[Rfam]
RNA sequence: GAGAUAUGAUGAGGUUUAAUUUGGUCCGUGUUUCUGAUUAAACCGUGACCGACAAAUUUUUUAACCAAACUCUGAUCUC
Numbered sequence: 001g002a003g004a005u006a007u008g009a010u011g012a013g014g015u016u017u018a019a020u021u022u023g024g025u026c027c028g029u030g031u032u033u034c035u036g037a038u039u040a041a042a043c044c045g046u047g048a049c050c051g052a053c054a055a056a057u058u059u060u061u062u063a064a065c066c067a068a069a070c071u072c073u074g075a076u077c078u079c
Base pairs, nucleotide, nucleotide: 001079002078003077004076
This 79-nucleotide RNA from Gossypium australe belongs to the Rfam family "Small nucleolar RNA SNORD18".
Gene Ontology terms of the family: nucleolus and RNA processing.
The family's RNA type in Rfam is C/D-box small nucleolar RNA.
NCBI's taxonomy places the organism under Eukaryota, Spermatophyta, eudicotyledons, rosids, Gossypium.
Its Rfam clan is "SNORD18 clan".